This 61-nucleotide RNA from Drosophila melanogaster belongs to the Rfam family "mir-1013 microRNA precursor family". The family has 2 seed sequences and 5 matches in Rfam 15.1. Taxonomically the source falls in Sophophora (Eukaryota, Eumetabola, Aparaglossata, Muscomorpha). Its family is annotated with miRNA-mediated post-transcriptional gene silencing and RISC complex in the Gene Ontology. It is one of the family's seed sequences.
RNA sequence: GUGAGUUUCGUACACUUAAUUAAUAGGAUCGGCCGUUAAUAAAAGUAUGCCGAACUCGCAG
Numbered sequence: 001g002u003g004a005g006u007u008u009c010g011u012a013c014a015c016u017u018a019a020u021u022a023a024u025a026g027g028a029u030c031g032g033c034c035g036u037u038a039a040u041a042a043a044a045g046u047a048u049g050c051c052g053a054a055c056u057c058g059c060a061g
Stems, first nucleotide, its partner, number of pairs: 001059008010050003014046004019040006026034002